[Rfam]
RNA: Small nucleolar RNA SNORD93
RNA sequence: UGGCCAGGGCUGAAAACAAUAAUCUAAUUACUUGCUCUGACUACUUGAUGGAAUAAAGGAUUUUCUGAGGCCA
Numbered sequence: 001u002g003g004c005c006a007g008g009g010c011u012g013a014a015a016a017c018a019a020u021a022a023u024c025u026a027a028u029u030a031c032u033u034g035c036u037c038u039g040a041c042u043a044c045u046u047g048a049u050g051g052a053a054u055a056a057a058g059g060a061u062u063u064u065c066u067g068a069g070g071c072c073a
Stems, first nucleotide, its partner, number of pairs: 002072004